RNA sequence: AUUAACAAAUAAAUAUCACCUUGUAUAAGUCCAGGAAUAUGGCUUGGACGUUUCUACCAGCUACCUUAAAUAGCUUGUCUACAAGGAUUUGUGAAAUAUCU
Numbered sequence: 001a002u003u004a005a006c007a008a009a010u011a012a013a014u015a016u017c018a019c020c021u022u023g024u025a026u027a028a029g030u031c032c033a034g035g036a037a038u039a040u041g042g043c044u045u046g047g048a049c050g051u052u053u054c055u056a057c058c059a060g061c062u063a064c065c066u067u068a069a070a071u072a073g074c075u076u077g078u079c080u081a082c083a084a085g086g087a088u089u090u091g092u093g094a095a096a097u098a099u100c101u
Base pairs, nucleotide, nucleotide: 019086020085021084022083023082024081025080029049030048031047032046033045034044035043058077059076060074061073062072063071